This 411-nucleotide sequence from Dyadobacter luteus belongs to the Rfam family "Bacterial RNase P class A". Taxonomically the source falls in Dyadobacter (Bacteria, Pseudomonadati, Bacteroidota, Spirosomataceae). Ribonuclease P (RNase P) is a ubiquitous endoribonuclease, found in archaea, bacteria and eukarya as well as chloroplasts and mitochondria. By type it is a ribozyme.

[Rfam]
Nucleotides: 411
Stems, first nucleotide, its partner, number of pairs: 001407010011396001012352007020038002023035004043394003047391005052235004060285002064231005069083005084110001085108004111226002116224002118220003134166002136162005142156005174192005193215001194213004199208003239309004249300006277292005316335008
Number, partner (000 for none) and nucleotide at each position: 001407g002406g003405a004404g005403u006402a007401a008400g009399c010398u011396g012352u013351u014350c015349u016348a017347c018346c019000g020038c021037c022000g023035c024034g025033g026032u027000c028000u029000u030000g031000u032026a033025c034024c035023g036000g037021g038020g039000a040000g041000g042000a043394a044393a045392g046000u047391c048390c049389g050388g051387g052235c053234a054233g055232c056000g057000a058000a059000g060285a061284g062000u063000g064231c065230c066229g067228u068227a069083c070082u071081u072080c073079c074000u075000a076000a077000c078000g079073g080072g081071a082070a083069g084110g085108c086107a087106g088105c089000a090000g091000g092000c093000c094000a095000g096000a097000a098000a099000u100000g101000a102000c103000c104000g105088g106087u107086u108085g109000a110084c111226a112225g113000c114000a115000a116224g117223u118220g119219c120218c121000a122000c123000a124000g125000a126000a127000a128000c129000u130000u131000a132000a133000a134166c135165c136162g137161c138160c139159u140158g141000g142156c143155a144154u145153g146152u147000u148000u149000u150000u151000u152146a153145u154144g155143u156142g157000a158140c159139g160138g161137g162136u163000a164000a165135g166134g167000g168000u169000g170000a171000a172000a173000a174192g175191g176190u177189g178188g179000a180000g181000u182000a183000a184000g185000a186000g187000a188178c189177c190176a191175c192174c193215g194213c195212c196211u197210g198000a199208c200207g201206g202000g203000c204000g205000a206201c207200c208199g209000g210197c211196a212195g213194g214000g215193c216000a217000c218120g219119g220118u221000a222000a223117a224116c225112c226111u227068u228067a229066c230065g231064g232055g233054c234053u235052g236000a237000a238000a239309g240308a241307u242306c243000a244000a245000a246000u247000a248000g249300g250299u251298g252297u253296u254295g255000a256000u257000a258000c259000g260000u261000g262000a263000g264000g265000c266000u267000a268000c269000u270000c271000g272000u273000c274000u275000c276000c277292g278291c279290u280289u281288u282000c283000u284061c285060u286000g287000g288281a289280a290279a291278g292277c293000a294000u295254c296253a297252g298251c299250a300249c301000g302000g303000g304000u305000a306242g307241a308240u309239c310000g311000u312000u313000a314000g315000a316335g317334g318333u319332u320331u321330c322329g323328g324000g325000u326000g327000a328323c329322c330321g331320g332319a333318a334317u335316c336000c337000u338000g339000g340000a341000u342000a343000a344000a345000u346018g347017g348016u349015a350014g351013a352012a353000g354000c355000u356000c357000u358000g359000a360000u361000u362000a363000g364000c365000g366000a367000a368000a369000g370000u371000u372000a373000a374000u375000a376000g377000g378000a379000g380000a381000a382000c383000a384000g385000a386000a387051c388050c389049c390048g391047g392045c393044u394043u395000a396011c397000a398010g399009g400008c401007u402006u403005a404004u405003u406002c407001u408000u409000a410000u411000c